[Rfam]
The family of this 110-nucleotide RNA from Rynchops niger is "Small nucleolar RNA SNORD90".
RNA sequence: AAUCCUGGUUUUUGUGUCUUAUGAUGAAGCUUUAUAGGGCAGAUUCUGAGCUGAGAAAAUUUCUCUCCACUGAUACUCUCUAUAUGCGAUCUGAAGACACACAAUUGUUU
Dot-bracket structure: ............(((((((.........(.(.(((.(((..(..((.(.(..(((.......)))..).).)))..)))....))).).)....))))))).........

Record summary:
snoRNA HBII-295 belongs to the family of C/D snoRNAs. It is the human orthologue of the mouse MBII-295 and has no identified RNA target. On this family, see Huttenhofer et al., EMBO J 2001: "RNomics: an experimental approach that identifies 201 candidates for novel, small, non-messenger RNAs in mouse". It is annotated as a C/D-box small nucleolar RNA. Pairs were carried over by alignment from the consensus structure, which was predicted with RNAalifold.